Shown here is a 67-nucleotide sequence from Cricetulus griseus, a member of the family "mir-290 microRNA precursor family". The match comes from Rfam's covariance-model search (60 bits). Lineage of the source: Eukaryota > Metazoa > Euarchontoglires > Rodentia > Cricetulus. Its family is annotated with RISC complex and miRNA-mediated post-transcriptional gene silencing in the Gene Ontology.
[Rfam]
RNA sequence: GUGACACUCAACCUGGGGGCACUUUUGUUUUCUUGGAAGUAAAGUGCUGCCAGGUUUUGAGUGUUAC
Numbered sequence: 001g002u003g004a005c006a007c008u009c010a011a012c013c014u015g016g017g018g019g020c021a022c023u024u025u026u027g028u029u030u031u032c033u034u035g036g037a038a039g040u041a042a043a044g045u046g047c048u049g050c051c052a053g054g055u056u057u058u059g060a061g062u063g064u065u066a067c
Stems, first nucleotide, its partner, number of pairs: 004064008013053004018048006025042003